Shown here is a 426-nucleotide RNA sequence from Pseudooceanicola algae, a member of the family "Bacterial RNase P class A".
Taxonomically the source falls in Pseudooceanicola (Bacteria, Pseudomonadota, Alphaproteobacteria, Rhodobacterales).
The base pairs follow the family's consensus structure, which is taken from published work.
Its family is annotated with ribonuclease P activity, tRNA processing and dimeric ribonuclease P complex in the Gene Ontology.
The match comes from Rfam's covariance-model search (286 bits).
The family's RNA type in Rfam is ribozyme.

RNA sequence: GCGGAGGGCCGGAUGGCCGCGGGGGGUGACCUCCGAGGAAAGUCCGGACUCCAUAAGGCAACGGUGCCGGGUAACGCCCGGCGGGGGCAACCCCAGGGAAAGCGCCACAGAGAACAGACCGCCCUGAUCGGCCCUUUCGGGUCAGGUUCGCGAGAAUGGUCAGGGUAAGGGUGAAACGGUGCGGUAAGAGCGCACCGCGGGACGGGCAACCGGACCGGCAUGGCAAGCCCCACCGGGAGCAAUGCCGAAUAGGGAUCUCACGCGGGGCCCGCCAUCUGGCGGCGUCACCGCAGGGCCGCCUUGGCCCGGAGAUCCGGGUUGGCAGCUAGAGGCACAGGGGUAACCCUGCGCCAAGAUGAAUGGUCAUCGAACCGGUUCCGGAGACGGGCCGGGGAACAAAAUCCGGCUUACAGGCCCUCCGCGCAU
Numbered sequence: 001g002c003g004g005a006g007g008g009c010c011g012g013a014u015g016g017c018c019g020c021g022g023g024g025g026g027u028g029a030c031c032u033c034c035g036a037g038g039a040a041a042g043u044c045c046g047g048a049c050u051c052c053a054u055a056a057g058g059c060a061a062c063g064g065u066g067c068c069g070g071g072u073a074a075c076g077c078c079c080g081g082c083g084g085g086g087g088c089a090a091c092c093c094c095a096g097g098g099a100a101a102g103c104g105c106c107a108c109a110g111a112g113a114a115c116a117g118a119c120c121g122c123c124c125u126g127a128u129c130g131g132c133c134c135u136u137u138c139g140g141g142u143c144a145g146g147u148u149c150g151c152g153a154g155a156a157u158g159g160u161c162a163g164g165g166u167a168a169g170g171g172u173g174a175a176a177c178g179g180u181g182c183g184g185u186a187a188g189a190g191c192g193c194a195c196c197g198c199g200g201g202a203c204g205g206g207c208a209a210c211c212g213g214a215c216c217g218g219c220a221u222g223g224c225a226a227g228c229c230c231c232a233c234c235g236g237g238a239g240c241a242a243u244g245c246c247g248a249a250u251a252g253g254g255a256u257c258u259c260a261c262g263c264g265g266g267g268c269c270c271g272c273c274a275u276c277u278g279g280c281g282g283c284g285u286c287a288c289c290g291c292a293g294g295g296c297c298g299c300c301u302u303g304g305c306c307c308g309g310a311g312a313u314c315c316g317g318g319u320u321g322g323c324a325g326c327u328a329g330a331g332g333c334a335c336a337g338g339g340g341u342a343a344c345c346c347u348g349c350g351c352c353a354a355g356a357u358g359a360a361u362g363g364u365c366a367u368c369g370a371a372c373c374g375g376u377u378c379c380g381g382a383g384a385c386g387g388g389c390c391g392g393g394g395a396a397c398a399a400a401a402u403c404c405g406g407c408u409u410a411c412a413g414g415c416c417c418u419c420c421g422c423g424c425a426u
Stems, first nucleotide, its partner, number of pairs: 001422010011411001012368007020035006040409003044406005049239004057302002062235005067081005082096001083094004097230002102228002104224003119170002121166009178196006197219001198217003203212003243324004253315006293307005332351002335348005
Dot-bracket structure: ((((((((((((((((((.((((((....))))))....[[[.[[[[[((((....[[...((((((((((.....)))))(((((....)))).)((...(((((............(((((((((((............................)))))))))..)).......((((((.......))))))((((..(((....)))..))).)..)))..)))))))))))))...((((......((((((..................................(((((...]])))))..)))))).....)))).......((.(((((....))))).))..........))))))).................................]]]]]]]].).))))))))))....